Rfam assigns this 376-nucleotide sequence from Geopseudomonas guangdongensis to the family "Pseudomonas sRNA CrcZ".

[Rfam]
RNA sequence: ACAACAAAAACAACAACGCCAAGACAACACAAUAAAAACAACACGCAACGACUCCGACACAACAAAAACAACAGGGUGGAGGCGCAGCAAACUGAUUCUUUUGGAGAGGAUGUAGUCGACGGGAGCUUCCCGCAGCCGGACAGAGAACAAUAAAACUGCCCCGAGGCAGCGUCCGAUACCGGUUGACCGCAAGGUGCGGCACGAUCAGCGUCCAAAGUAAUCCGUUUGUUCUUGAGUCCCGACUUGGGACAGCCCCGGCCAACGCCGGAACGGGCAACCAACAACAACAACGGCCCGGCAGCACAAGAAGAACAAAGCACGAUCUGAUUUGAGGGGAGCUUCGGCUCCCCUUGUGCUUUGCGCACUUUGCACGCAC
Numbered sequence: 001a002c003a004a005c006a007a008a009a010a011c012a013a014c015a016a017c018g019c020c021a022a023g024a025c026a027a028c029a030c031a032a033u034a035a036a037a038a039c040a041a042c043a044c045g046c047a048a049c050g051a052c053u054c055c056g057a058c059a060c061a062a063c064a065a066a067a068a069c070a071a072c073a074g075g076g077u078g079g080a081g082g083c084g085c086a087g088c089a090a091a092c093u094g095a096u097u098c099u100u101u102u103g104g105a106g107a108g109g110a111u112g113u114a115g116u117c118g119a120c121g122g123g124a125g126c127u128u129c130c131c132g133c134a135g136c137c138g139g140a141c142a143g144a145g146a147a148c149a150a151u152a153a154a155a156c157u158g159c160c161c162c163g164a165g166g167c168a169g170c171g172u173c174c175g176a177u178a179c180c181g182g183u184u185g186a187c188c189g190c191a192a193g194g195u196g197c198g199g200c201a202c203g204a205u206c207a208g209c210g211u212c213c214a215a216a217g218u219a220a221u222c223c224g225u226u227u228g229u230u231c232u233u234g235a236g237u238c239c240c241g242a243c244u245u246g247g248g249a250c251a252g253c254c255c256c257g258g259c260c261a262a263c264g265c266c267g268g269a270a271c272g273g274g275c276a277a278c279c280a281a282c283a284a285c286a287a288c289a290a291c292g293g294c295c296c297g298g299c300a301g302c303a304c305a306a307g308a309a310g311a312a313c314a315a316a317g318c319a320c321g322a323u324c325u326g327a328u329u330u331g332a333g334g335g336g337a338g339c340u341u342c343g344g345c346u347c348c349c350c351u352u353g354u355g356c357u358u359u360g361c362g363c364a365c366u367u368u369g370c371a372c373g374c375a376c
Base pairs, nucleotide, nucleotide: 049084050083052081053080054079055078099217100216101215102214103213113210133185134184135183136182137181138180139179156169157168158167159166160165236250237249238248239247272296273295274294275293315358316357317356318355331354332351333350334349335348336347337346338345339344

On this family, see Livny et al., Nucleic Acids Res 2006: "Identification of 17 Pseudomonas aeruginosa sRNAs and prediction of sRNA-encoding genes in 10 diverse pathogens using the bioinformatic tool sRNAPredict2". Taxonomically the source falls in Geopseudomonas (Bacteria, Pseudomonadati, Pseudomonadales, Pseudomonadaceae). The match comes from Rfam's covariance-model search (267 bits).